Annotation:
Shown here is a 123-nucleotide RNA sequence from Eschrichtius robustus, a member of the family "Small nucleolar RNA SNORA61". By type it is an H/ACA-box small nucleolar RNA. From the family's description: ACA61 is a member of the H/ACA class of snoRNA that guide the sites of modification of uridines to pseudouridines. Its family is annotated with nucleolus and RNA processing in the Gene Ontology. It scores 82 bits against the family's covariance model. The family has 25 seed sequences and 881 matches in Rfam 15.1. Pairs were carried over by alignment from the consensus structure, which was predicted with PFOLD.
RNA sequence: ACUCUACCCCGUCCCCUUUCCCAUUAGAUCUGAACACUGCUCUUCGUGGUCAUAAAGGGAGGAGUAGUAGGGAUGAAGCUGUCCUCACAGUGCUUGUAGUCUGCUAUAUAGCAUGUGGGCUAG
Number, nucleotide and partner (000 for none) at each position: 001a000002c000003u062004c061005u060006a000007c000008c059009c058010c000011g000012u000013c000014c000015c000016c000017u000018u000019u000020c000021c049022c048023a047024u046025u000026a000027g042028a041029u000030c039031u000032g000033a000034a000035c000036a000037c000038u000039g030040c000041u028042c027043u000044u000045c000046g024047u023048g022049g021050u000051c000052a000053u000054a000055a000056a000057g000058g009059g008060a005061g004062g003063a000064g000065u000066a000067g000068u000069a000070g000071g000072g000073a000074u000075g000076a000077a000078g000079c123080u122081g121082u000083c119084c118085u117086c000087a000088c000089a000090g000091u000092g000093c000094u000095u113096g112097u111098a000099g000100u000101c000102u000103g000104c000105u000106a000107u000108a000109u000110a000111g097112c096113a095114u000115g000116u000117g085118g084119g083120c000121u081122a080123g079